[Rfam]
RNA sequence: CCCUCGCUCAACAAAUCGCUAUUCGAAGCUUACACACAGAGACACUGUAAUCGCAGCGUCUCGCUACUCGAAUGCUUUGGGAGAAAGUCCCCGGACGUCUCCUUCACGGAGCUUGCGGAAACGCGCCGCCAUAAAAGCACUGCGGCUGACCUCUGCACCUUGGCUCUCUCCGCGGCGCCCGCCCUGCCCACCGCUACAUCUGCCUCCCGCGCGUCCUCGUCGGAGCCUGUUGGCGCGUCUCCGGCCCCCAUGGAUGAAGAUACGAGUCCGAGCCGGGCGGCGUGCUUCGGGACCUCUGGCGCGGGCGAGCGGUGGCGGAUGGUGGGUGGACGCUGUGGUGUCUGCGGGAGUGGCAUCGGGCGCGGAGGACCUGUUGUCGAGGUCGAUAGGUAUGCGAUUGCCCGGCGCAAGCUGGGUUACUCGAUGGGGCUUAUUCUUGAGGCGAGG
Numbered sequence: 001c002c003c004u005c006g007c008u009c010a011a012c013a014a015a016u017c018g019c020u021a022u023u024c025g026a027a028g029c030u031u032a033c034a035c036a037c038a039g040a041g042a043c044a045c046u047g048u049a050a051u052c053g054c055a056g057c058g059u060c061u062c063g064c065u066a067c068u069c070g071a072a073u074g075c076u077u078u079g080g081g082a083g084a085a086a087g088u089c090c091c092c093g094g095a096c097g098u099c100u101c102c103u104u105c106a107c108g109g110a111g112c113u114u115g116c117g118g119a120a121a122c123g124c125g126c127c128g129c130c131a132u133a134a135a136a137g138c139a140c141u142g143c144g145g146c147u148g149a150c151c152u153c154u155g156c157a158c159c160u161u162g163g164c165u166c167u168c169u170c171c172g173c174g175g176c177g178c179c180c181g182c183c184c185u186g187c188c189c190a191c192c193g194c195u196a197c198a199u200c201u202g203c204c205u206c207c208c209g210c211g212c213g214u215c216c217u218c219g220u221c222g223g224a225g226c227c228u229g230u231u232g233g234c235g236c237g238u239c240u241c242c243g244g245c246c247c248c249c250a251u252g253g254a255u256g257a258a259g260a261u262a263c264g265a266g267u268c269c270g271a272g273c274c275g276g277g278c279g280g281c282g283u284g285c286u287u288c289g290g291g292a293c294c295u296c297u298g299g300c301g302c303g304g305g306c307g308a309g310c311g312g313u314g315g316c317g318g319a320u321g322g323u324g325g326g327u328g329g330a331c332g333c334u335g336u337g338g339u340g341u342c343u344g345c346g347g348g349a350g351u352g353g354c355a356u357c358g359g360g361c362g363c364g365g366a367g368g369a370c371c372u373g374u375u376g377u378c379g380a381g382g383u384c385g386a387u388a389g390g391u392a393u394g395c396g397a398u399u400g401c402c403c404g405g406c407g408c409a410a411g412c413u414g415g416g417u418u419a420c421u422c423g424a425u426g427g428g429g430c431u432u433a434u435u436c437u438u439g440a441g442g443c444g445a446g447g
Stems, first nucleotide, its partner, number of pairs: 002447006008440004014399006023081001024079006039062005045056004085432003089429004114125004162371002168367006178359002188353004335345004401416006
Shown here is a 447-nucleotide RNA from Tolypocladium paradoxum, a member of the family "RNase MRP". Taxonomically the source falls in Tolypocladium (Eukaryota, Opisthokonta, saccharomyceta, leotiomyceta). From the family's description: RNase MRP is an enzymatically active ribonucleoprotein with two distinct roles in eukaryotes. It scores 101 bits against the family's covariance model. Rfam classes the family as a ribozyme. Gene Ontology terms of the family: rRNA processing, ribonuclease MRP activity and ribonuclease MRP complex.